[Rfam]
RNA sequence: CCAUGGUGCAUUGUAGUUGCAUUGCAUGUUUUUCUGUAGCAAAUGUAGUGCAAAUACAGUGCAAAAUGG
Number, nucleotide and partner (000 for none) at each position: 001c069002c068003a067004u066005g000006g000007u063008g062009c061010a060011u059012u058013g057014u056015a055016g000017u000018u000019g051020c000021a049022u048023u047024g046025c045026a044027u043028g000029u000030u000031u000032u000033u000034c000035u000036g000037u000038a000039g000040c000041a000042a000043a027044u026045g025046u024047a023048g022049u021050g000051c019052a000053a000054a000055u015056a014057c013058a012059g011060u010061g009062c008063a007064a000065a000066a004067u003068g002069g001

The family of this 69-nucleotide RNA from Lytechinus variegatus is "mir-33 microRNA precursor family". The source organism's lineage runs through Eukaryota, Bilateria, Echinodermata, Temnopleuroida and Lytechinus. On this family, see Li et al., BMC Genomics 2009: "Direct sequencing and expression analysis of a large number of miRNAs in Aedes aegypti and a multi-species survey of novel mosquito miRNAs". Rfam links the family to the GO terms gene silencing by miRNA and RISC complex. The family's consensus secondary structure was predicted with PFOLD.